[Rfam]
RNA sequence: GCCCUGUGGUUGCUGAACACUGGUUUCUGUGUGCAGUGCUUCAGUUAGUAGAAAUGGGCCAAAAGUGACACUGUGGUUUUACGCAUGGAAUCUGUGAUACAUGAGCAGCCUCCAUAGCCCGGUCACAGUCACAGAC
Numbered sequence: 001g002c003c004c005u006g007u008g009g010u011u012g013c014u015g016a017a018c019a020c021u022g023g024u025u026u027c028u029g030u031g032u033g034c035a036g037u038g039c040u041u042c043a044g045u046u047a048g049u050a051g052a053a054a055u056g057g058g059c060c061a062a063a064a065g066u067g068a069c070a071c072u073g074u075g076g077u078u079u080u081a082c083g084c085a086u087g088g089a090a091u092c093u094g095u096g097a098u099a100c101a102u103g104a105g106c107a108g109c110c111u112c113c114a115u116a117g118c119c120c121g122g123u124c125a126c127a128g129u130c131a132c133a134g135a136c
Stems, first nucleotide, its partner, number of pairs: 001059004007050002010047001012045006019037004071128001073126006083118002085115004092108004
RNA: Small nucleolar RNA SNORA84